[Rfam]
RNA sequence: UUAUGGAUGAUGAUUCCAAGUCAAUCAGCCCUUGGAAAAGCUUAACAAAAUGAGUGAAACUCCCUGAAAAAAUACCUAUCACUUGGCUAUAA
Numbered sequence: 001u002u003a004u005g006g007a008u009g010a011u012g013a014u015u016c017c018a019a020g021u022c023a024a025u026c027a028g029c030c031c032u033u034g035g036a037a038a039a040g041c042u043u044a045a046c047a048a049a050a051u052g053a054g055u056g057a058a059a060c061u062c063c064c065u066g067a068a069a070a071a072a073u074a075c076c077u078a079u080c081a082c083u084u085g086g087c088u089a090u091a092a
Stems, first nucleotide, its partner, number of pairs: 001092005026056002030052001032048003